The record is a 132-nucleotide RNA sequence from Castor canadensis, which matches "Small nucleolar RNA SNORA51" in Rfam. Rfam links the family to the GO terms RNA processing and nucleolus. ACA51 is a member of the H/ACA class of snoRNA that guide the sites of modification of uridines to pseudouridines. By type it is an H/ACA-box small nucleolar RNA.

[Rfam]
RNA sequence: AGUCUCCUGGUGCUUACCAUAGGCUGCGUUUUUAUACUGACUGCAUAGAAAGAGGAGAGAAAGUAAACUUACCACAUAUACACCUAAGACCAGGUCCUGUGCCUGGUCUGUAUAGGGCGUAGGGAAAUAUGG
Numbered sequence: 001a002g003u004c005u006c007c008u009g010g011u012g013c014u015u016a017c018c019a020u021a022g023g024c025u026g027c028g029u030u031u032u033u034a035u036a037c038u039g040a041c042u043g044c045a046u047a048g049a050a051a052g053a054g055g056a057g058a059g060a061a062a063g064u065a066a067a068c069u070u071a072c073c074a075c076a077u078a079u080a081c082a083c084c085u086a087a088g089a090c091c092a093g094g095u096c097c098u099g100u101g102c103c104u105g106g107u108c109u110g111u112a113u114a115g116g117g118c119g120u121a122g123g124g125a126a127a128u129a130u131g132g
Base pairs, nucleotide, nucleotide: 003058004057005056006055007054008053020043021042022041026037028035029034072124073123076120077119087109088108090106091105092104093103094102095101